[Rfam]
Description
The family of this 118-nucleotide RNA from Pyrus ussuriensis x Pyrus communis is "small nucleolar RNA snoR137". A search with the family's covariance model found it, with a score of 47 bits.
RNA sequence: GUUGCUUCUUAUGGUGGACUCCUGUAAAUUUUCAUUGGUUGGGGAUGUUCAAGUUUCCUAUGCAUAGAUAGAAUAUCACAUUUUUGCUUGCAUAUGUUACCGGUCUCCUGUUACAUGU
Numbered sequence: 001g002u003u004g005c006u007u008c009u010u011a012u013g014g015u016g017g018a019c020u021c022c023u024g025u026a027a028a029u030u031u032u033c034a035u036u037g038g039u040u041g042g043g044g045a046u047g048u049u050c051a052a053g054u055u056u057c058c059u060a061u062g063c064a065u066a067g068a069u070a071g072a073a074u075a076u077c078a079c080a081u082u083u084u085u086g087c088u089u090g091c092a093u094a095u096g097u098u099a100c101c102g103g104u105c106u107c108c109u110g111u112u113a114c115a116u117g118u
Base pairs, nucleotide, nucleotide: 003064004063005062007060015051016050017049018048019047020045021044022043023042067112068111069110070109071108073106080098082096084094